[Rfam]
RNA sequence: GCCACAUGAUGUUACGUUAGACUGCAUUAGCAUUUUUCAGUGCAAAGAUGACCACCUAUCUAUCACCCAAGACUGAUGGCU
Numbered sequence: 001g002c003c004a005c006a007u008g009a010u011g012u013u014a015c016g017u018u019a020g021a022c023u024g025c026a027u028u029a030g031c032a033u034u035u036u037u038c039a040g041u042g043c044a045a046a047g048a049u050g051a052c053c054a055c056c057u058a059u060c061u062a063u064c065a066c067c068c069a070a071g072a073c074u075g076a077u078g079g080c081u
Stems, first nucleotide, its partner, number of pairs: 001080004030043004

Shown here is an 81-nucleotide RNA sequence from Bagarius yarrelli, a member of the family "Small nucleolar RNA SNORD83". On this family, see Jady and Kiss, Nucleic Acids Res 2000: "Characterisation of the U83 and U84 small nucleolar RNAs: two novel 2'-O-ribose methylation guide RNAs that lack complementarities to ribosomal RNAs". Pairs were carried over by alignment from the consensus structure, which was predicted with PFOLD. It is annotated as a C/D-box small nucleolar RNA.